[Rfam]
RNA sequence: GUGCUCACUGGGGCUCAGUCUGUUCCAUGUGGUCCUGACCUACCUUCUGUGAGCAAGAGAAACAGGACUGGUCUGGGGGUAUCCUGUCUGAGUGGACAUGGGAUACCACAGUUUUCAGUACAACA
Number, nucleotide and partner (000 for none) at each position: 001g000002u000003g054004c053005u052006c051007a050008c049009u000010g000011g000012g044013g043014c000015u000016c000017a000018g039019u038020c037021u000022g000023u000024u000025c032026c031027a000028u000029g000030u000031g026032g025033u000034c000035c000036u000037g020038a019039c018040c000041u000042a000043c013044c012045u000046u000047c000048u000049g008050u007051g006052a005053g004054c003055a000056a000057g000058a000059g000060a000061a000062a000063c000064a000065g121066g000067a119068c118069u117070g116071g115072u000073c111074u110075g109076g000077g000078g107079g106080u105081a104082u103083c102084c101085u100086g097087u096088c095089u094090g000091a000092g000093u000094g089095g088096a087097c086098a000099u000100g085101g084102g083103a082104u081105a080106c079107c078108a000109c075110a074111g073112u000113u000114u000115u071116c070117a069118g068119u067120a000121c065122a000123a000124c000125a000
This 125-nucleotide RNA from Tupaia belangeri belongs to the Rfam family "Small Cajal body specific RNA 23".
It is annotated as a small Cajal body RNA.
It is one of the family's seed sequences.
About the family: scaRNAs are a specific class of small nuclear RNAs which localise to the Cajal bodies and guide the modification of RNA polymerase II transcribed spliceosomal RNAs U1, U2, U4, U5 and U12.
For this family Rfam cites "Cajal body-specific small nuclear RNAs: a novel class of 2'-O-methylation and pseudouridylation guide RNAs" (Darzacq et al., EMBO J, 2002).
NCBI's taxonomy places the organism under Eukaryota, Craniata, Teleostomi, Euarchontoglires, Tupaia.
The family's consensus secondary structure was predicted with RNAfold.